The record is a 475-nucleotide part of an RNA from Krasilnikoviella flava, which matches "Bacterial large subunit ribosomal RNA" in Rfam. Lineage of the source: Bacteria > Actinomycetes > Micrococcales > Promicromonosporaceae > Krasilnikoviella. It scores 2766 bits against the family's covariance model.
RNA sequence: CUCCCCGAAAUGCAUUUAGGUGCAGCGUCACGUGUUUCUUGCCGGAGGUAGAGCUACUGGAUGGCUAAUGGGCCCUACCAGGUUACUGACGUCAGCCAAACUCCGAAUGCCGGUAAGACAUAGCGUGGCAGUGAGACUGCGGGGGAUAAGCUUCGUAGUCGAGAGGGAAACAGCCCAGAUCAUCGGCUAAGGCCCCUAAGCGUGUGCUCAGUGGGAAAGGAUGUGGAGUUGCACAGACAACCAGGAGGUUGGCUUAGAAGCAGCCACCCUUGAAAGAGUGCGUAAUAGCUCACUGGUCAAGUGAUUCCGCGCCGACAAUGUAGCGGGGCUCAAGUACACCGCCGAAGCCGUGGCACUCACACAAUAACCCAGCAUCGACUUGAUCGGUGUUCAGGUGUGUGGGUGGGUAGGGGAGCGUCGUGUGGGCAGUGAAGCUGCAGGGUGACCUAGUGGUGGAGCCCACACGAGUGAGAAU
Numbered sequence: 001c002u003c004c005c006c007g008a009a010a011u012g013c014a015u016u017u018a019g020g021u022g023c024a025g026c027g028u029c030a031c032g033u034g035u036u037u038c039u040u041g042c043c044g045g046a047g048g049u050a051g052a053g054c055u056a057c058u059g060g061a062u063g064g065c066u067a068a069u070g071g072g073c074c075c076u077a078c079c080a081g082g083u084u085a086c087u088g089a090c091g092u093c094a095g096c097c098a099a100a101c102u103c104c105g106a107a108u109g110c111c112g113g114u115a116a117g118a119c120a121u122a123g124c125g126u127g128g129c130a131g132u133g134a135g136a137c138u139g140c141g142g143g144g145g146a147u148a149a150g151c152u153u154c155g156u157a158g159u160c161g162a163g164a165g166g167g168a169a170a171c172a173g174c175c176c177a178g179a180u181c182a183u184c185g186g187c188u189a190a191g192g193c194c195c196c197u198a199a200g201c202g203u204g205u206g207c208u209c210a211g212u213g214g215g216a217a218a219g220g221a222u223g224u225g226g227a228g229u230u231g232c233a234c235a236g237a238c239a240a241c242c243a244g245g246a247g248g249u250u251g252g253c254u255u256a257g258a259a260g261c262a263g264c265c266a267c268c269c270u271u272g273a274a275a276g277a278g279u280g281c282g283u284a285a286u287a288g289c290u291c292a293c294u295g296g297u298c299a300a301g302u303g304a305u306u307c308c309g310c311g312c313c314g315a316c317a318a319u320g321u322a323g324c325g326g327g328g329c330u331c332a333a334g335u336a337c338a339c340c341g342c343c344g345a346a347g348c349c350g351u352g353g354c355a356c357u358c359a360c361a362c363a364a365u366a367a368c369c370c371a372g373c374a375u376c377g378a379c380u381u382g383a384u385c386g387g388u389g390u391u392c393a394g395g396u397g398u399g400u401g402g403g404u405g406g407g408u409a410g411g412g413g414a415g416c417g418u419c420g421u422g423u424g425g426g427c428a429g430u431g432a433a434g435c436u437g438c439a440g441g442g443u444g445a446c447c448u449a450g451u452g453g454u455g456g457a458g459c460c461c462a463c464a465c466g467a468g469u470g471a472g473a474a475u
Stems, first nucleotide, its partner, number of pairs: 001415006011024005026131001027129007036122001037118009051104001052102002058098003062094004070086001071084004135160010165176003180353004185349003191343003200340001202339006219313002223310010240297005246270003251265003271275001276291001280289002354405010416470001418467010434454005439448003